A member of the RNA family "Glycine riboswitch aptamer" from Flexivirga oryzae, 93 nucleotides long. On this family, see Babina et al., MBio 2017: "In Vivo Behavior of the Tandem Glycine Riboswitch in Bacillus subtilis". A search with the family's covariance model found it, with a score of 58 bits. The source organism's lineage runs through Bacteria, Actinomycetota, Actinomycetes, Dermacoccaceae and Flexivirga.
RNA sequence: CGACACCGGGCGGGAGAGUCCUGCCAGCACGGUCGGGACGCCGAAGGGGCAACCUCCCCAGAACCUCUCAGGCGCCAGGACCGCCCGGCUGAG
Numbered sequence: 001c002g003a004c005a006c007c008g009g010g011c012g013g014g015a016g017a018g019u020c021c022u023g024c025c026a027g028c029a030c031g032g033u034c035g036g037g038a039c040g041c042c043g044a045a046g047g048g049g050c051a052a053c054c055u056c057c058c059c060a061g062a063a064c065c066u067c068u069c070a071g072g073c074g075c076c077a078g079g080a081c082c083g084c085c086c087g088g089c090u091g092a093g
Stems, first nucleotide, its partner, number of pairs: 006088008020037004040073003043069002047067003053061001